[Rfam]
Description:
Shown here is a 182-nucleotide RNA sequence from Echeneis naucrates, a member of the family "Small nucleolar RNA SNORA81". The source organism's lineage runs through Eukaryota, Eumetazoa, Teleostei, Osteoglossocephalai and Echeneis. It is annotated as an H/ACA-box small nucleolar RNA. Gene Ontology terms of the family: nucleolus and RNA processing. The base pairs follow the family's consensus structure, which was predicted with WAR. The literature on the family includes a 2005 paper in Nucleic Acids Res by Gu et al., "A novel experimental approach for systematic identification of box H/ACA snoRNAs from eukaryotes". The match comes from Rfam's covariance-model search (83 bits).
RNA sequence: CUCUUCUGCAUUAACAGAUGUCUGCUAUAAUUGUGUGAUCCAGAUUUUAUCUGUUUCAUGCAAUAAUGCUAGCAGAUCACUGCGCGGAAGGAGAGUAAUGUGCACUGUACUGAAAAUGAGAUGUGGCCGAACCUCUUUCUUAAUGUUCAUUGGCUUCUUUCUCAAGGCACAGUGCCACAGUC
Numbered sequence: 001c002u003c004u005u006c007u008g009c010a011u012u013a014a015c016a017g018a019u020g021u022c023u024g025c026u027a028u029a030a031u032u033g034u035g036u037g038a039u040c041c042a043g044a045u046u047u048u049a050u051c052u053g054u055u056u057c058a059u060g061c062a063a064u065a066a067u068g069c070u071a072g073c074a075g076a077u078c079a080c081u082g083c084g085c086g087g088a089a090g091g092a093g094a095g096u097a098a099u100g101u102g103c104a105c106u107g108u109a110c111u112g113a114a115a116a117u118g119a120g121a122u123g124u125g126g127c128c129g130a131a132c133c134u135c136u137u138u139c140u141u142a143a144u145g146u147u148c149a150u151u152g153g154c155u156u157c158u159u160u161c162u163c164a165a166g167g168c169a170c171a172g173u174g175c176c177a178c179a180g181u182c
Base pairs, nucleotide, nucleotide: 020077021076023074024073025072026071027070030067031066032065033064036058037057038056041053042052043051044050045049102175103174104173105172106171107170108169124153126151129148130147131146